[Rfam]
The record is a 48-nucleotide RNA sequence, which matches "Pseudoknot of influenza A virus gene" in Rfam. It is annotated as a cis-regulatory element. It is one of the family's seed sequences. The base pairs follow the family's consensus structure, which is taken from published work.

RNA sequence: UUCCAGGACAUAAUGGUGAGGAUGUCAAGAAUGCAAUUGGCGUCCUCA
Numbered sequence: 001u002u003c004c005a006g007g008a009c010a011u012a013a014u015g016g017u018g019a020g021g022a023u024g025u026c027a028a029g030a031a032u033g034c035a036a037u038u039g040g041c042g043u044c045c046u047c048a
Stems, first nucleotide, its partner, number of pairs: 003040004018047006
Dot-bracket structure: ..[[[[...........((((((.............]]]].)))))).